The family of this 114-nucleotide sequence from Sphaeramia orbicularis is "Small nucleolar RNA SNORD67".
By type it is a C/D-box small nucleolar RNA.
Nucleotides: 114
Stems, first nucleotide, its partner, number of pairs: 006111003025068002028065001029063004034058003040053001042051003
Number, partner (000 for none) and nucleotide at each position: 001000u002000g003000u004000g005000a006111g007110g008109g009000u010000g011000a012000u013000g014000a015000g016000u017000u018000g019000c020000a021000c022000u023000a024000a025068u026067c027000a028065g029063u030062u031061g032060g033000a034058g035057u036056g037000u038000u039000g040053g041000u042051u043050g044049c045000a046000g047000u048000g049044g050043c051042a052000u053040c054000g055000a056036c057035g058034c059000u060032c061031c062030a063029a064000u065028c066000c067026g068025a069000c070000u071000c072000a073000g074000c075000c076000u077000g078000a079000g080000g081000a082000c083000a084000c085000g086000c087000g088000a089000c090000g091000u092000g093000c094000a095000c096000a097000g098000g099000g100000g101000c102000c103000a104000u105000c106000u107000g108000a109008c110007u111006c112000a113000a114000c

About the family: snoRNA HBII-166 belongs to the C/D family of snoRNAs. For this family Rfam cites "RNomics: an experimental approach that identifies 201 candidates for novel, small, non-messenger RNAs in mouse" (Huttenhofer et al., EMBO J, 2001).